Nitrogen stress-induced RNA 1: a 62-nucleotide RNA sequence from Nostoc sp. PCC 7524. A reference for the family is Ionescu et al. (2010), "Heterocyst-specific transcription of NsiR1, a non-coding RNA encoded in a tandem array of direct repeats in cyanobacteria", J Mol Biol. A search with the family's covariance model found it, with a score of 54 bits. Rfam classes the family as a small RNA. Lineage of the source: Bacteria > Cyanophyceae > Nostocales > Nostocaceae > Nostoc.
[Rfam]
RNA sequence: UGGUAGAUGCACCCUAAAUAAUUGCCUCCCCUGGUUGGCUGCCACCACUAGGGGCUGUUUUU
Numbered sequence: 001u002g003g004u005a006g007a008u009g010c011a012c013c014c015u016a017a018a019u020a021a022u023u024g025c026c027u028c029c030c031c032u033g034g035u036u037g038g039c040u041g042c043c044a045c046c047a048c049u050a051g052g053g054g055c056u057g058u059u060u061u062u
Stems, first nucleotide, its partner, number of pairs: 002013003028054007036047003